[Rfam]
RNA sequence: GAUACUGCAUGUGAUUUUUCUCAUAUAUGCUCGGGAAUAUGGCUCGAGUGUCUCUACCCGGAAACCGUAAAUUUCCGGACUAUGGGAAAAAUCUUCCUUCGG
Numbered sequence: 001g002a003u004a005c006u007g008c009a010u011g012u013g014a015u016u017u018u019u020c021u022c023a024u025a026u027a028u029g030c031u032c033g034g035g036a037a038u039a040u041g042g043c044u045c046g047a048g049u050g051u052c053u054c055u056a057c058c059c060g061g062a063a064a065c066c067g068u069a070a071a072u073u074u075c076c077g078g079a080c081u082a083u084g085g086g087a088a089a090a091a092u093c094u095u096c097c098u099u100c101g102g
Stems, first nucleotide, its partner, number of pairs: 018088008029049007058078007
A member of the RNA family "Purine riboswitch aptamer" from Polycladomyces abyssicola, 102 nucleotides long. From the family's description: Riboswitches are metabolite binding domains within certain messenger RNAs that serve as precision sensors for their corresponding targets.